[Rfam]
RNA sequence: GUCACAUUGCCGUCCGUCAUAGGGCACUUUGCUCUAUUUAUCGAAUGCUAGCUGCCCUUUGAAGGGCAACACUGUGGU
Numbered sequence: 001g002u003c004a005c006a007u008u009g010c011c012g013u014c015c016g017u018c019a020u021a022g023g024g025c026a027c028u029u030u031g032c033u034c035u036a037u038u039u040a041u042c043g044a045a046u047g048c049u050a051g052c053u054g055c056c057c058u059u060u061g062a063a064g065g066g067c068a069a070c071a072c073u074g075u076g077g078u
Stems, first nucleotide, its partner, number of pairs: 004075003008071002012067004017062003023056002028051002031048002
Rfam assigns this 78-nucleotide RNA to the family "mir-980 microRNA precursor family". Pairs were carried over by alignment from the consensus structure, which was predicted with RNAalifold.